[Rfam]
RNA sequence: AAUAAUGGUUAAGUUGCUUUUCAUUAUAGUUCUUAUGGGACUUUUUGUGUACACUCAAAAAGCUCUAUAAUAUCUACAGUAGUUUUACCCACUACAGAAAUUAUAGAGCC
Numbered sequence: 001a002a003u004a005a006u007g008g009u010u011a012a013g014u015u016g017c018u019u020u021u022c023a024u025u026a027u028a029g030u031u032c033u034u035a036u037g038g039g040a041c042u043u044u045u046u047g048u049g050u051a052c053a054c055u056c057a058a059a060a061a062g063c064u065c066u067a068u069a070a071u072a073u074c075u076a077c078a079g080u081a082g083u084u085u086u087a088c089c090c091a092c093u094a095c096a097g098a099a100a101u102u103a104u105a106g107a108g109c110c
Stems, first nucleotide, its partner, number of pairs: 001025003005021001008017002028043002031040002062109004067104005073098002078093003082089001
Rfam assigns this 110-nucleotide RNA sequence from Streptococcus thermophilus to the family "Streptococcus RNA 266". On this family, see Acebo et al., RNA 2012: "Identification of 88 regulatory small RNAs in the TIGR4 strain of the human pathogen Streptococcus pneumoniae". The base pairs follow the family's consensus structure. Lineage of the source: Bacteria > Bacillati > Bacilli > Streptococcus > Streptococcus thermophilus. By type it is a small RNA.